[Rfam]
RNA: SmY spliceosomal RNA
RNA sequence: AAUAUAAUAAAACACUGUCAGGGCCUUACAAAAGACCCACUGAUCAAUUUUUGAAAACCUUGUUCUCUUGAGGGCACGGUA
Number, nucleotide and partner (000 for none) at each position: 001a000002a000003u000004a000005u000006a000007a000008u000009a000010a000011a000012a000013c000014a000015c000016u000017g000018u000019c000020a000021g038022g037023g036024c000025c034026u033027u032028a000029c000030a000031a000032a027033a026034g025035a000036c023037c022038c021039a000040c000041u000042g000043a000044u000045c000046a000047a000048u000049u000050u000051u000052u000053g000054a000055a000056a000057a080058c079059c078060u000061u076062g075063u074064u073065c072066u000067c000068u000069u000070g000071a000072g065073g064074g063075c062076a061077c000078g059079g058080u057081a000